Rfam assigns this 133-nucleotide RNA sequence from Sapajus apella to the family "Small nucleolar RNA SNORA72". The family has 29 seed sequences and 1,541 matches in Rfam 15.1. A search with the family's covariance model found it, with a score of 106 bits. On this family, see Ganot et al., Genes Dev 1997: "The family of box ACA small nucleolar RNAs is defined by an evolutionarily conserved secondary structure and ubiquitous sequence elements essential for RNA accumulation". U72 is a member of the H/ACA class of snoRNAs. The snoRNA gene is located in intron 4 of the ribosomal L30 protein gene in human, mouse and chicken. The family's RNA type in Rfam is H/ACA-box small nucleolar RNA.
RNA sequence: GUUCAAAUACUUAUGUCAAAAUUGAUUUUGUAAUAGUCAGGACAGGCUAAACAUUUGCUGUGUUAAGACCAUGCAUGUGUCCCUAGACCUAGUUCUUUCCUUAGGUCUGGUUUUAUAAAUACUGGUGAUAAAC
Numbered sequence: 001g002u003u004c005a006a007a008u009a010c011u012u013a014u015g016u017c018a019a020a021a022u023u024g025a026u027u028u029u030g031u032a033a034u035a036g037u038c039a040g041g042a043c044a045g046g047c048u049a050a051a052c053a054u055u056u057g058c059u060g061u062g063u064u065a066a067g068a069c070c071a072u073g074c075a076u077g078u079g080u081c082c083c084u085a086g087a088c089c090u091a092g093u094u095c096u097u098u099c100c101u102u103a104g105g106u107c108u109g110g111u112u113u114u115a116u117a118a119a120u121a122c123u124g125g126u127g128a129u130a131a132a133c
Stems, first nucleotide, its partner, number of pairs: 004057002017045001022040006068126004073122001083110010